This 160-nucleotide RNA sequence from Digitaria exilis belongs to the Rfam family "U1 spliceosomal RNA".
RNA sequence: AUACUUACCUGGACGGGGUCUAUGGCUGAUCAAGAAGAGCCAUGGCCUAAGUUAGUGGCCUCCAUUGCACUUGGGAGGAGCACUAGCUUACCAUCUCCUCAAGUAGGAGAGUGGACGUCGUAAUUUGUGGAAGAGGGGGUACGCGUUCGCGCGGCUCCUA
Dot-bracket structure: ...........(((((((((..(((((..........))))).)))))(((.(.(((..((((..........)).))..)))..)))).((((((.((.....)).))).))).))))...............(((((..((((....)))).))))).

Rfam describes the family as follows. U1 is a small nuclear RNA (snRNA) component of the spliceosome (involved in pre-mRNA splicing). Its 5' end forms complementary base pairs with the 5' splice junction, thus defining the 5' donor site of an intron. A search with the family's covariance model found it, with a score of 135 bits. The family's RNA type in Rfam is spliceosomal small nuclear RNA.